This 78-nucleotide sequence from Alligator mississippiensis belongs to the Rfam family "Mammalian CPEB3 ribozyme". The organism belongs to Alligator, within Eukaryota.

RNA sequence: GGUUACAAAUUUGAGGCAGCAGCAGAAGUGCUCACGGCGCGGCCCCUUCAAAUUUCAAUGAAAUCUGCGAAUUCUAAU
Numbered sequence: 001g002g003u004u005a006c007a008a009a010u011u012u013g014a015g016g017c018a019g020c021a022g023c024a025g026a027a028g029u030g031c032u033c034a035c036g037g038c039g040c041g042g043c044c045c046c047u048u049c050a051a052a053u054u055u056c057a058a059u060g061a062a063a064u065c066u067g068c069g070a071a072u073u074c075u076a077a078u
Base pairs, nucleotide, nucleotide: 013046015044016043017042021078024075025074026073027072028040029039030038049067050066052064053063054062055061
The base pairs follow the family's consensus structure, which is taken from published work. For this family Rfam cites "A genomewide search for ribozymes reveals an HDV-like sequence in the human CPEB3 gene" (Salehi-Ashtiani et al., Science, 2006).